RNA sequence: CUCUUAUCACGAGAGGUGGAGGGACUGGCCCUGUGAAGCCCGGCAACAGCUAGAUAUUCUAGAAAUGUGCUAAAUCCUGAAGGAUAUUUCCUUAAAGAUGAGAG
Numbered sequence: 001c002u003c004u005u006a007u008c009a010c011g012a013g014a015g016g017u018g019g020a021g022g023g024a025c026u027g028g029c030c031c032u033g034u035g036a037a038g039c040c041c042g043g044c045a046a047c048a049g050c051u052a053g054a055u056a057u058u059c060u061a062g063a064a065a066u067g068u069g070c071u072a073a074a075u076c077c078u079g080a081a082g083g084a085u086a087u088u089u090c091c092u093u094a095a096a097g098a099u100g101a102g103a104g
Base pairs, nucleotide, nucleotide: 001104002103003102004101005100006099007098008097013041015040016039017038021031022030023029025079027077028076042071043070044069045068047067048066050062051061052060075096080093081092082091083090084089

Shown here is a 104-nucleotide RNA sequence from Clostridium kluyveri, a member of the family "SAM riboswitch aptamer (S box leader)". The family's consensus secondary structure is taken from published work.